[Rfam]
RNA sequence: UGGUGCCCAAUGUGGGGCUGGAUACUGGGGGACAACGUGAGGGUCCAACGACGAAGGAAAGAAGGGGUGCGUACCCGAUCAAACAAUAGUUCAAAGACGUCACGGUAGCCUGCUGUGACCGAGCUGACAGGUAAGUUGGUCGUUCAAUCAUGAGACAAAAAUUAAGUCAACAUCAAAAAUAUAUGAUACAAUUAAGAAAAGCUUUACAGGCAAGAGGAGUAAAGGUUACAACUAAGGAUUUAUUUCAUUUCUUUGAUUUUGUGAGACAUCUGCCCAU
Numbered sequence: 001u002g003g004u005g006c007c008c009a010a011u012g013u014g015g016g017g018c019u020g021g022a023u024a025c026u027g028g029g030g031g032a033c034a035a036c037g038u039g040a041g042g043g044u045c046c047a048a049c050g051a052c053g054a055a056g057g058a059a060a061g062a063a064g065g066g067g068u069g070c071g072u073a074c075c076c077g078a079u080c081a082a083a084c085a086a087u088a089g090u091u092c093a094a095a096g097a098c099g100u101c102a103c104g105g106u107a108g109c110c111u112g113c114u115g116u117g118a119c120c121g122a123g124c125u126g127a128c129a130g131g132u133a134a135g136u137u138g139g140u141c142g143u144u145c146a147a148u149c150a151u152g153a154g155a156c157a158a159a160a161a162u163u164a165a166g167u168c169a170a171c172a173u174c175a176a177a178a179a180u181a182u183a184u185g186a187u188a189c190a191a192u193u194a195a196g197a198a199a200a201g202c203u204u205u206a207c208a209g210g211c212a213a214g215a216g217g218a219g220u221a222a223a224g225g226u227u228a229c230a231a232c233u234a235a236g237g238a239u240u241u242a243u244u245u246c247a248u249u250u251c252u253u254u255g256a257u258u259u260u261g262u263g264a265g266a267c268a269u270c271u272g273c274c275c276a277u
Stems, first nucleotide, its partner, number of pairs: 006030003012025003036050003090129001091127002098121002101117005137158001139156002143154004163206003166202002214254006223241005264277001265274001267272001
Shown here is a 277-nucleotide RNA from Nannospalax galili, a member of the family "Mason-Pfizer monkey virus packaging signal". It scores 146 bits against the family's covariance model. Rfam links the family to the GO term viral genome packaging. About the family: This family represents a group of sequences that are related to the Mason-Pfizer monkey virus (MPMV) packaging signal.